[Rfam]
Exoribonuclease-resistant RNA (xrRNA) plant-infecting virus (class 3): a 53-nucleotide RNA from Polerovirus PEVYV1. Pairs were carried over by alignment from the consensus structure, which is taken from published work. It is one of the family's seed sequences. NCBI's taxonomy places the organism under Viruses, Riboviria, Orthornavirae, Sobelivirales, Polerovirus PEVYV1. The family's RNA type in Rfam is cis-regulatory element.

RNA sequence: UAACUAGCCAAGCAUACAUCAGUUGCAAGCGUUGGAAAGUUUCAGUCUGAUUA
Numbered sequence: 001u002a003a004c005u006a007g008c009c010a011a012g013c014a015u016a017c018a019u020c021a022g023u024u025g026c027a028a029g030c031g032u033u034g035g036a037a038a039g040u041u042u043c044a045g046u047c048u049g050a051u052u053a
Stems, first nucleotide, its partner, number of pairs: 002040001008035002011033001012030002018051005

Source information:
Gene Ontology term of the family: viral RNA genome replication.